[Rfam]
RNA: STAXI RNA
RNA sequence: UGUUGUCUUCGGACAACCAGCCAAUGCUUCAGCACUCUGUGAGAAGCACCUUCGGGUGACUGCCAAUAGCCUCGUAGCCUGAAAGAGGAAGCCCAUGUGGCGGUAACUCCGUUUAGCCUUUGAGAACGGAGAUCACUUAGCGGUGAUGAAGGUCCAU
Numbered sequence: 001u002g003u004u005g006u007c008u009u010c011g012g013a014c015a016a017c018c019a020g021c022c023a024a025u026g027c028u029u030c031a032g033c034a035c036u037c038u039g040u041g042a043g044a045a046g047c048a049c050c051u052u053c054g055g056g057u058g059a060c061u062g063c064c065a066a067u068a069g070c071c072u073c074g075u076a077g078c079c080u081g082a083a084a085g086a087g088g089a090a091g092c093c094c095a096u097g098u099g100g101c102g103g104u105a106a107c108u109c110c111g112u113u114u115a116g117c118c119u120u121u122g123a124g125a126a127c128g129g130a131g132a133u134c135a136c137u138u139a140g141c142g143g144u145g146a147u148g149a150a151g152g153u154c155c156a157u
Base pairs, nucleotide, nucleotide: 002017003016004015005014006013007012026047027046028045029044030043032063033062034061036059037058048057049056050055070088071087072086074107075106077104078103079102091101092100093099110129113126116153117152118151119150120149132147133146134145135144136143137142
Dot-bracket structure: .((((((....))))))........(((((.[[[.[[.....)))))(((....)))]].]]]......[[[.((.(((......]]]..(((.....)))))).))..[..[..(((((.....]..]..((((((....)))))).)))))....